RNA sequence: AACGGGUAAUUACUGGCACGGGCGAAGAGGUUUCCUCUCCGCCCGUGUAUGCAUGUUAAGGGCAGAUAAAAAGAG
Dot-bracket structure: ..(((.......)))(((((((((.((((.....)))).)))))))))...........................
Numbered sequence: 001a002a003c004g005g006g007u008a009a010u011u012a013c014u015g016g017c018a019c020g021g022g023c024g025a026a027g028a029g030g031u032u033u034c035c036u037c038u039c040c041g042c043c044c045g046u047g048u049a050u051g052c053a054u055g056u057u058a059a060g061g062g063c064a065g066a067u068a069a070a071a072a073g074a075g
Stems, first nucleotide, its partner, number of pairs: 003015003016048009026038004
This 75-nucleotide RNA sequence from Salmonella enterica belongs to the Rfam family "tpke11". Rfam describes the family as follows. In Yersinia located in ICR upstream dnaJ (chaperone)gene. Has temperature responsive RNA structure. The literature on the family includes a 2016 paper in Proc Natl Acad Sci U S A by Righetti et al., "Temperature-responsive in vitro RNA structurome of Yersinia pseudotuberculosis". Rfam classes the family as a small RNA.